[Rfam]
RNA sequence: UGGAGAAGCCAGUGAUGGUUUUUGGCCAAAAUGUCUGAACCUGUCUGAAGCAUUUCAGUGAAGUUCCAUACGGCUCUGAGGCAUCUCUGUGG
Number, nucleotide and partner (000 for none) at each position: 001u000002g000003g000004a086005g085006a084007a000008g082009c081010c080011a000012g000013u000014g000015a000016u000017g000018g000019u000020u000021u000022u000023u000024g000025g000026c000027c000028a000029a000030a000031a000032u000033g000034u000035c000036u000037g000038a000039a000040c000041c000042u000043g000044u000045c000046u000047g000048a000049a000050g000051c000052a000053u000054u000055u000056c000057a000058g000059u000060g000061a000062a000063g000064u000065u000066c000067c000068a000069u000070a000071c000072g000073g000074c000075u000076c000077u000078g000079a000080g010081g009082c008083a000084u006085c005086u004087c000088u000089g000090u000091g000092g000